[Rfam]
RNA sequence: UAAAAAUGGGGAGUGCAGAGGGGAUCCCCCUCGCCGGUUUAGAGGGGGUGCUCAGGAGCGUUAGCUCCGUCGAAGGGGGA
Numbered sequence: 001u002a003a004a005a006a007u008g009g010g011g012a013g014u015g016c017a018g019a020g021g022g023g024a025u026c027c028c029c030c031u032c033g034c035c036g037g038u039u040u041a042g043a044g045g046g047g048g049u050g051c052u053c054a055g056g057a058g059c060g061u062u063a064g065c066u067c068c069g070u071c072g073a074a075g076g077g078g079g080a
Stems, first nucleotide, its partner, number of pairs: 015034002018032005055068005
This 80-nucleotide RNA sequence from Anaerosolibacter carboniphilus belongs to the Rfam family "Clostridiales-2 RNA". A search with the family's covariance model found it, with a score of 70 bits. The family's RNA type in Rfam is small RNA. Pairs were carried over by alignment from the consensus structure, which is taken from published work. The family has 44 seed sequences and 285 matches in Rfam 15.1.